Shown here is a 67-nucleotide sequence from Ascaris suum, a member of the family "mir-234 microRNA precursor family". The source organism's lineage runs through Eukaryota, Bilateria, Chromadorea, Ascaridoidea and Ascaris. Pairs were carried over by alignment from the consensus structure, which was predicted with RNAalifold. The family has 9 seed sequences and 45 matches in Rfam 15.1.

RNA sequence: GCAAAAGGUAUUCUCCGGUAAUGACAUAGUGCAUUGAAAGCUGUUAUUGCUUGAGAAUACAAAUUGU
Numbered sequence: 001g002c003a004a005a006a007g008g009u010a011u012u013c014u015c016c017g018g019u020a021a022u023g024a025c026a027u028a029g030u031g032c033a034u035u036g037a038a039a040g041c042u043g044u045u046a047u048u049g050c051u052u053g054a055g056a057a058u059a060c061a062a063a064u065u066g067u
Stems, first nucleotide, its partner, number of pairs: 008060006017051010